[Rfam]
Rfam assigns this 108-nucleotide sequence from Candidatus Hydrogenisulfobacillus filiaventi to the family "TPP riboswitch aptamer (THI element)".
RNA sequence: CCUCGACGCUAGGGGUGCUCAUGCGAGCUGAGAAGGAUUGUGCAAACAAUCCUACCCUUUGAACCUGAUCUGGGUCAUACCAGCGAAGGGAAGCGAGUCAUUUGCUAC
Numbered sequence: 001c002c003u004c005g006a007c008g009c010u011a012g013g014g015g016u017g018c019u020c021a022u023g024c025g026a027g028c029u030g031a032g033a034a035g036g037a038u039u040g041u042g043c044a045a046a047c048a049a050u051c052c053u054a055c056c057c058u059u060u061g062a063a064c065c066u067g068a069u070c071u072g073g074g075u076c077a078u079a080c081c082a083g084c085g086a087a088g089g090g091a092a093g094c095g096a097g098u099c100a101u102u103u104g105c106u107a108c
Base pairs, nucleotide, nucleotide: 007095008094009093010092011058012057013056014055017028018027019026020025035052036051037050038049039048040047041046064089065088066087070083071082072081073080

The literature on the family includes a 2003 paper in FEBS Lett by Kubodera et al., "Thiamine-regulated gene expression of Aspergillus oryzae thiA requires splicing of the intron containing a riboswitch-like domain in the 5'-UTR". It scores 75 bits against the family's covariance model. Lineage of the source: Bacteria > Bacillati > Bacillota > Clostridia > Candidatus Hydrogenisulfobacillus.